[Rfam]
The record is a 94-nucleotide RNA sequence from Hevea brasiliensis, which matches "Small nucleolar RNA snoR27" in Rfam.
A search with the family's covariance model found it, with a score of 71 bits.
The base pairs follow the family's consensus structure, which was predicted with WAR.
Clan: snR68 clan.
For this family Rfam cites "Multiple snoRNA gene clusters from Arabidopsis" (Brown et al., RNA, 2001).
RNA sequence: GUUGGAUCAAUGAUGUUAGUUAGAAACUGCGUUAUCUUCCUGCAACUUCUUAUUGGAAUUGAAGAUUGUCUGUAUAAUUAAUCUGAGAUCCUAU
Number, nucleotide and partner (000 for none) at each position: 001g094002u093003u000004g091005g090006a089007u088008c000009a000010a000011u000012g000013a000014u000015g000016u000017u000018a000019g000020u000021u000022a000023g000024a000025a000026a000027c000028u000029g000030c000031g000032u000033u000034a000035u000036c000037u000038u000039c000040c000041u000042g000043c000044a000045a000046c000047u000048u000049c000050u000051u000052a000053u000054u000055g000056g000057a000058a000059u000060u000061g000062a000063a000064g000065a000066u000067u000068g000069u000070c000071u000072g000073u000074a000075u000076a000077a000078u000079u000080a000081a000082u000083c000084u000085g000086a000087g000088a007089u006090c005091c004092u000093a002094u001

Rfam 15.1 lists 649 matches to the family in 212 species.